A member of the RNA family "Makes More Granules Regulator RNA (mmgR)" from Sphingomonas tagetis, 77 nucleotides long. About the family: SuhB later renamed mmgR (makes more granules regulator) was a putative non-coding RNA found multiple times in the Agrobacterium tumefaciens genome and related alpha-proteobacteria. On this family, see Schluter et al., BMC Genomics 2010: "A genome-wide survey of sRNAs in the symbiotic nitrogen-fixing alpha-proteobacterium Sinorhizobium meliloti". The source organism's lineage runs through Bacteria, Pseudomonadota, Alphaproteobacteria, Sphingomonadaceae and Sphingomonas. The family's RNA type in Rfam is small RNA.
RNA sequence: AGAGCAGGCCUUUCAGGCAUCCUCUCCUAAACCUUUCAAAGGGUCGGUCUUCGGACCGGCCCCUUUUUUUGCCCGAA
Dot-bracket structure: .......((((...))))......................(((((((((....)))))))))...............
Numbered sequence: 001a002g003a004g005c006a007g008g009c010c011u012u013u014c015a016g017g018c019a020u021c022c023u024c025u026c027c028u029a030a031a032c033c034u035u036u037c038a039a040a041g042g043g044u045c046g047g048u049c050u051u052c053g054g055a056c057c058g059g060c061c062c063c064u065u066u067u068u069u070u071g072c073c074c075g076a077a
Stems, first nucleotide, its partner, number of pairs: 008018004041062009